[Rfam]
RNA sequence: UAUGAAUAACCACCUGUUCUUUUUUAACUUCUUUUUUCUCCAAUAACCUUUGGAGGCGGAGUCGUUUGUAAGAAACAAGUCAAAAACGAACAGAAAGCCUCCCAACAGGGAGGCUUUUUUAUA
Numbered sequence: 001u002a003u004g005a006a007u008a009a010c011c012a013c014c015u016g017u018u019c020u021u022u023u024u025u026a027a028c029u030u031c032u033u034u035u036u037u038c039u040c041c042a043a044u045a046a047c048c049u050u051u052g053g054a055g056g057c058g059g060a061g062u063c064g065u066u067u068g069u070a071a072g073a074a075a076c077a078a079g080u081c082a083a084a085a086a087c088g089a090a091c092a093g094a095a096a097g098c099c100u101c102c103c104a105a106c107a108g109g110g111a112g113g114c115u116u117u118u119u120u121a122u123a
Base pairs, nucleotide, nucleotide: 016091017090018089019088021086022085023084024083025082027080028079029078030077032075033074034073036071037070039054040053041052042051055066056065057064058063094117095116096115097114098113099112100111101110102109103108